[Rfam]
RNA sequence: UAUAUAUUUCAGGGGAGCUGAGAAGCUGAGAGGAGAUGCAAAUCUCGACCCUUUAAACCUGUUUGGAUAAUGCCAGCGUAGGGAGAAAAAUCAGAUUAUAU
Numbered sequence: 001u002a003u004a005u006a007u008u009u010c011a012g013g014g015g016a017g018c019u020g021a022g023a024a025g026c027u028g029a030g031a032g033g034a035g036a037u038g039c040a041a042a043u044c045u046c047g048a049c050c051c052u053u054u055a056a057a058c059c060u061g062u063u064u065g066g067a068u069a070a071u072g073c074c075a076g077c078g079u080a081g082g083g084a085g086a087a088a089a090a091u092c093a094g095a096u097u098a099u100a101u
Stems, first nucleotide, its partner, number of pairs: 007088004011052004017026003033046005058082004063076004

A member of the RNA family "TPP riboswitch aptamer (THI element)" from Romboutsia lituseburensis, 101 nucleotides long. Gene Ontology term of the family: thiamine pyrophosphate binding. NCBI's taxonomy places the organism under Bacteria, Clostridia, Peptostreptococcales, Romboutsia, Romboutsia lituseburensis.